[Rfam]
Record summary:
Rfam assigns this 83-nucleotide RNA from Gadus morhua to the family "Small nucleolar RNA SNORD79". For this family Rfam cites "Classification of gas5 as a multi-small-nucleolar-RNA (snoRNA) host gene and a member of the 5'-terminal oligopyrimidine gene family reveals common features of snoRNA host genes" (Smith and Steitz, Mol Cell Biol, 1998). A search with the family's covariance model found it, with a score of 52 bits. It is annotated as a C/D-box small nucleolar RNA. From the family's description: snoRNA U79 or Z22 is found in intron 7 of the gas5 gene in humans and is also present in mice. Its family is annotated with nucleolus and RNA processing in the Gene Ontology. The source organism's lineage runs through Eukaryota, Actinopterygii, Acanthomorphata, Gadiformes and Gadus.
RNA sequence: AACUAUAAGUGAUGUCAAUGUUUGAUAAACAUUGGGAAUCUCUCUGAUUAACAAUGACGGAUAACUUUAUUGCUGAUGCAGUG
Numbered sequence: 001a002a003c004u005a006u007a008a009g010u011g012a013u014g015u016c017a018a019u020g021u022u023u024g025a026u027a028a029a030c031a032u033u034g035g036g037a038a039u040c041u042c043u044c045u046g047a048u049u050a051a052c053a054a055u056g057a058c059g060g061a062u063a064a065c066u067u068u069a070u071u072g073c074u075g076a077u078g079c080a081g082u083g
Stems, first nucleotide, its partner, number of pairs: 002082003006078002